Small nucleolar RNA SNORD53/SNORD92: a 74-nucleotide RNA sequence from Rhinolophus ferrumequinum. The match comes from Rfam's covariance-model search (57 bits). A reference for the family is Kiss-Laszlo et al. (1996), "Site-specific ribose methylation of preribosomal RNA: a novel function for small nucleolar RNAs", Cell. The organism belongs to Rhinolophus, within Eukaryota.

[Rfam]
RNA sequence: AUGUUAUGAUGACAUCCAUAUGCUUUCAUUUCUGGCUGAGUUUCCGAGAUGACACCUUUCCGUUGGCUGAGCAU
Number, nucleotide and partner (000 for none) at each position: 001a074002u073003g072004u071005u000006a000007u000008g000009a000010u000011g000012a000013c000014a000015u000016c000017c000018a000019u000020a000021u000022g000023c000024u000025u000026u000027c000028a000029u000030u000031u000032c000033u000034g000035g000036c000037u000038g000039a000040g000041u000042u000043u000044c000045c000046g000047a000048g000049a000050u000051g000052a000053c000054a000055c000056c000057u000058u000059u000060c000061c000062g000063u000064u000065g000066g000067c000068u000069g000070a000071g004072c003073a002074u001